[Rfam]
RNA sequence: GCCGGGCGCGGUGGCGCGCGCCUGUAGUCCCAGCGACUCGGGAGGCUGAGGCAGGAGGAUCGCUUGAGCCCAGGAGUUCUGGGCUGUAGUGCGCUAUGCCGAUCGGGUGUCCGCACUAAGUUCGGCAUCAAUAUGGUGACCUCCCGGGAGCGGGGGACCACCAGGUUGCCUAAGGAGGGGUGAACCGGCCCAGGUCGGAAACGGAGCAGGUCAAAACUCCCGUGCUGAUCAGUAUUGUAUGGACCCAGGCAUUCUAAUUGGAAAAGCCUGGACACCCAGGCUAGAU
Numbered sequence: 001g002c003c004g005g006g007c008g009c010g011g012u013g014g015c016g017c018g019c020g021c022c023u024g025u026a027g028u029c030c031c032a033g034c035g036a037c038u039c040g041g042g043a044g045g046c047u048g049a050g051g052c053a054g055g056a057g058g059a060u061c062g063c064u065u066g067a068g069c070c071c072a073g074g075a076g077u078u079c080u081g082g083g084c085u086g087u088a089g090u091g092c093g094c095u096a097u098g099c100c101g102a103u104c105g106g107g108u109g110u111c112c113g114c115a116c117u118a119a120g121u122u123c124g125g126c127a128u129c130a131a132u133a134u135g136g137u138g139a140c141c142u143c144c145c146g147g148g149a150g151c152g153g154g155g156g157a158c159c160a161c162c163a164g165g166u167u168g169c170c171u172a173a174g175g176a177g178g179g180g181u182g183a184a185c186c187g188g189c190c191c192a193g194g195u196c197g198g199a200a201a202c203g204g205a206g207c208a209g210g211u212c213a214a215a216a217c218u219c220c221c222g223u224g225c226u227g228a229u230c231a232g233u234a235u236u237g238u239a240u241g242g243a244c245c246c247a248g249g250c251a252u253u254c255u256a257a258u259u260g261g262a263a264a265a266g267c268c269u270g271g272a273c274a275c276c277c278a279g280g281c282u283a284g285a286u
Stems, first nucleotide, its partner, number of pairs: 001046003004023007028043003056286001060283001062281004066275001068273001070271005079266002084261003089258002093255001096252004103248001105246004110241001114237002117234002120230001122228007129168004134163005141156006169175002177220005187212004195204003

Shown here is a 286-nucleotide RNA sequence from Suricata suricatta, a member of the family "Metazoan signal recognition particle RNA". The literature on the family includes a 2002 paper in Nucleic Acids Res by Regalia et al., "Prediction of signal recognition particle RNA genes". Rfam classes the family as a non-coding RNA gene. It scores 185 bits against the family's covariance model. Rfam describes the family as follows. The signal recognition particle (SRP) is a universally conserved ribonucleoprotein.